[Rfam]
Nucleotides: 093
Base pairs, nucleotide, nucleotide: 001093002092003091004090005089006088007087008086013042014041015040016039017038021031022030023029025081026080027079028078043073044072045071046070048069049068052064053063054062077085
Number, partner (000 for none) and nucleotide at each position: 001093u002092u003091u004090u005089u006088a007087u008086a009000c010000a011000g012000a013042g014041g015040c016039g017038c018000u019000g020000a021031g022030a023029g024000a025081c026080a027079g028078g029023c030022u031021c032000g033000a034000u035000g036000a037000c038017g039016c040015g041014u042013c043073g044072g045071c046070a047000a048069c049068c050000a051000c052064c053063c054062g055000c056000a057000g058000g059000c060000u061000g062054c063053g064052g065000a066000a067000c068049g069048g070046u071045g072044c073043c074000a075000a076000u077085u078028c079027c080026u081025g082000c083000u084000c085077a086008u087007a088006u089005a090004a091003a092002a093001a
A member of the RNA family "SAM riboswitch aptamer (S box leader)" from Hymenobacter daecheongensis, 93 nucleotides long.
Gene Ontology term of the family: regulation of gene expression.